Record summary
The family of this 99-nucleotide RNA sequence from Opitutaceae bacterium TAV4 is "Bacterial small signal recognition particle RNA". Pairs were carried over by alignment from the consensus structure, which is taken from published work. Rfam links the family to the GO terms SRP-dependent cotranslational protein targeting to membrane, signal sequence recognition and signal recognition particle, plasma membrane targeting. Rfam's curators write: The signal recognition particle (SRP) is a universally conserved ribonucleoprotein involved in the co-translational targeting of proteins to membranes. It is annotated as a non-coding RNA gene. Taxonomically the source falls in Opitutaceae (Bacteria, Pseudomonadati, Verrucomicrobiota, Opitutales). On this family, see Rosenblad et al., RNA Biol 2009: "Kinship in the SRP RNA family".
[Rfam]
RNA sequence: GGCCAGGUGCCAUGCAUGGGCAGACACGCGAAUCCCGCCAGGACCGGAAGGUAGCAACGGUAGUGAUGUUCUCCCAGUGCCGUGGAUUGCCUGGCCACU
Numbered sequence: 001g002g003c004c005a006g007g008u009g010c011c012a013u014g015c016a017u018g019g020g021c022a023g024a025c026a027c028g029c030g031a032a033u034c035c036c037g038c039c040a041g042g043a044c045c046g047g048a049a050g051g052u053a054g055c056a057a058c059g060g061u062a063g064u065g066a067u068g069u070u071c072u073c074c075c076a077g078u079g080c081c082g083u084g085g086a087u088u089g090c091c092u093g094g095c096c097a098c099u
Base pairs, nucleotide, nucleotide: 004093005092006091007090008089010085011084012083013082014081015077017076018075019074020073027065028064029063035060036059037058043052044051045050